[Rfam]
RNA: mir-132 microRNA precursor family
Organism: Polypterus senegalus
RNA sequence: GUACGUCAACACCUUGGCUCUAGACUGCUUACUGCUAAUUGUUCUUAAAAGUACAGUAACAGUCUACAGUCAUGGCUACUGAAGGCUG
Numbered sequence: 001g002u003a004c005g006u007c008a009a010c011a012c013c014u015u016g017g018c019u020c021u022a023g024a025c026u027g028c029u030u031a032c033u034g035c036u037a038a039u040u041g042u043u044c045u046u047a048a049a050a051g052u053a054c055a056g057u058a059a060c061a062g063u064c065u066a067c068a069g070u071c072a073u074g075g076c077u078a079c080u081g082a083a084g085g086c087u088g
Stems, first nucleotide, its partner, number of pairs: 012075002015072004023064005029059005